This 212-nucleotide sequence from Altererythrobacter sp. B11 belongs to the Rfam family "permuted transfer-messenger RNA". The organism belongs to Altererythrobacter, within Bacteria. A reference for the family is Laslett et al. (2002), "BRUCE: a program for the detection of transfer-messenger RNA genes in nucleotide sequences", Nucleic Acids Res. It scores 148 bits against the family's covariance model. The base pairs follow the family's consensus structure, which is taken from published work.

RNA sequence: GGCGAUAAAAUGCGGUGUGCAAUAGGCACAGCGGACCCGGGGGCAGUACCCGGCGGCUCCACCAAAAGCCCGAAGAUUUCGGGAUUUUGACGGGGCCGAACCAGGAUCGACGUGUGUUGAAAAACACUGUUUUCGCCCGGGCUGAGUAACCCGUUAAAGGCUCAAAACACACAAGUGCCAACGAUAACGAAGCACUCGCUAUUGCCGCGUAA
Numbered sequence: 001g002g003c004g005a006u007a008a009a010a011u012g013c014g015g016u017g018u019g020c021a022a023u024a025g026g027c028a029c030a031g032c033g034g035a036c037c038c039g040g041g042g043g044c045a046g047u048a049c050c051c052g053g054c055g056g057c058u059c060c061a062c063c064a065a066a067a068g069c070c071c072g073a074a075g076a077u078u079u080c081g082g083g084a085u086u087u088u089g090a091c092g093g094g095g096c097c098g099a100a101c102c103a104g105g106a107u108c109g110a111c112g113u114g115u116g117u118u119g120a121a122a123a124a125c126a127c128u129g130u131u132u133u134c135g136c137c138c139g140g141g142c143u144g145a146g147u148a149a150c151c152c153g154u155u156a157a158a159g160g161c162u163c164a165a166a167a168c169a170c171a172c173a174a175g176u177g178c179c180a181a182c183g184a185u186a187a188c189g190a191a192g193c194a195c196u197c198g199c200u201a202u203u204g205c206c207g208c209g210u211a212a
Base pairs, nucleotide, nucleotide: 001137002136003135004134005133015127016126017125018124027116028115029114031113032112033111037053038052039051040050041049054098055097056096057095058094059093060092138153139152140151141150